[Rfam]
Nucleotides: 104
Base pairs, nucleotide, nucleotide: 001008051104052103053102054101055100056099057098058097059096060095061094062093063092065090066089067088069086070085071084072083073082
Number, partner (000 for none) and nucleotide at each position: 001008u002000c003000g004000a005000g006000a007000u008001a009000u010000u011000g012000g013000a014000c015000a016000u017000a018000g019000a020000a021000u022000g023000c024000c025000a026000a027000u028000c029000u030000u031000u032000a033000a034000a035000a036000u037000a038000a039000a040000a041000a042000a043000u044000g045000u046000a047000a048000a049000a050000c051104a052103a053102a054101g055100u056099a057098g058097c059096a060095a061094u062093a063092c064000c065090c066089c067088a068000u069086g070085u071084c072083u073082u074000g075000c076000u077000a078000a079000a080000g081000c082073a083072a084071g085070a086069c087000a088067u089066g090065g091000g092063g093062u094061a095060u096059u097058g098057c099056u100055a101054c102053u103052u104051u